bZIP non canonical Hac1/Xbp1 intron: a 73-nucleotide RNA from Stachybotrys elegans. A reference for the family is Hooks and Griffiths-Jones (2011), "Conserved RNA structures in the non-canonical Hac1/Xbp1 intron", RNA Biol. About the family: bZIP intron RNA is a non-canonical intron that was first reported in HAC1 gene in yeast and XBP1 gene in Metazoa.

[Rfam]
Nucleotides: 073
Base pairs, nucleotide, nucleotide: 001073002072004070005069006068007067009065010064011063012062013061021039022038023037024036025035026034044056045055046054
Number, partner (000 for none) and nucleotide at each position: 001073c002072a003000c004070c005069u006068c007067c008000u009065c010064c011063g012062a013061c014000u015000u016000g017000a018000c019000a020000c021039a022038a023037c024036g025035u026034c027000c028000u029000g030000c031000u032000g033000c034026g035025a036024u037023g038022u039021u040000g041000u042000g043000c044056g045055a046054c047000c048000u049000g050000c051000a052000g053000u054046g055045u056044c057000a058000a059000c060000c061013g062012u063011c064010g065009g066000a067007g068006g069005a070004g071000c072002u073001g